[Rfam]
RNA sequence: GGGCAGGAUAGGCAUUUGUAACACCGCGAACAAGUCGGCGGGCCACAAAUGCACCCUUAUUCGCACUACCGUGCUCAACGUAAUCCUGCUCUGCGAGGCU
Numbered sequence: 001g002g003g004c005a006g007g008a009u010a011g012g013c014a015u016u017u018g019u020a021a022c023a024c025c026g027c028g029a030a031c032a033a034g035u036c037g038g039c040g041g042g043c044c045a046c047a048a049a050u051g052c053a054c055c056c057u058u059a060u061u062c063g064c065a066c067u068a069c070c071g072u073g074c075u076c077a078a079c080g081u082a083a084u085c086c087u088g089c090u091c092u093g094c095g096a097g098g099c100u
Base pairs, nucleotide, nucleotide: 001091002090003089004088005087006086007085008084009083012052013051014050015049016048017047019045024040027037028036030035056080063074064073065072066071
Shown here is a 100-nucleotide RNA sequence from Sedimenticola thiotaurini, a member of the family "traJ-II RNA". The base pairs follow the family's consensus structure, which is taken from published work. Taxonomically the source falls in Sedimenticola (Bacteria, Pseudomonadota, Gammaproteobacteria, Sedimenticolaceae). The family's RNA type in Rfam is cis-regulatory element.